[Rfam]
RNA sequence: UUGCAGCUAAUUAAGCCGACCAGCUUCUGCCCUGAUCACAAGCUGGUGUGCAAUGGCUGCAUACAGUAACAUCCUUGGCUGUGUAUGUGCUUUGUCUGCCGUACAAAGUGCUCUAAGGGACCUUGGAGACAGAA
Numbered sequence: 001u002u003g004c005a006g007c008u009a010a011u012u013a014a015g016c017c018g019a020c021c022a023g024c025u026u027c028u029g030c031c032c033u034g035a036u037c038a039c040a041a042g043c044u045g046g047u048g049u050g051c052a053a054u055g056g057c058u059g060c061a062u063a064c065a066g067u068a069a070c071a072u073c074c075u076u077g078g079c080u081g082u083g084u085a086u087g088u089g090c091u092u093u094g095u096c097u098g099c100c101g102u103a104c105a106a107a108g109u110g111c112u113c114u115a116a117g118g119g120a121c122c123u124u125g126g127a128g129a130c131a132g133a134a
Stems, first nucleotide, its partner, number of pairs: 002052004019047004025041002028038001077122002088110006
Small nucleolar RNA SNORA70: a 134-nucleotide RNA sequence from Eleutherodactylus coqui. From the family's description: snoRNA U70 seems to be exclusive to mammals and is a member of the H/ACA class of snoRNA which contain H (ANANNA) and ACA box motifs. Rfam classes the family as an H/ACA-box small nucleolar RNA. Pairs were carried over by alignment from the consensus structure, which was predicted with PFOLD. Lineage of the source: Eukaryota > Metazoa > Deuterostomia > Eleutherodactylus > Eleutherodactylus. Its family is annotated with nucleolus and RNA processing in the Gene Ontology.